[Rfam]
RNA: Y RNA
Organism: Piliocolobus tephrosceles
RNA sequence: UGCCAGUCCAAGUGCAUUGGUAUUUACAACUAAUUGAUCAUAACCAGUUACAUAUUUAUUUGUUUCUUCUCCACUCCAACAGUUUCACUUGACUAGCCUCUA
Numbered sequence: 001u002g003c004c005a006g007u008c009c010a011a012g013u014g015c016a017u018u019g020g021u022a023u024u025u026a027c028a029a030c031u032a033a034u035u036g037a038u039c040a041u042a043a044c045c046a047g048u049u050a051c052a053u054a055u056u057u058a059u060u061u062g063u064u065u066c067u068u069c070u071c072c073a074c075u076c077c078a079a080c081a082g083u084u085u086c087a088c089u090u091g092a093c094u095a096g097c098c099u100c101u102a
Base pairs, nucleotide, nucleotide: 002097003096005094006093007092008091010090011089014086017079018078019077020076028064029063030062032060033059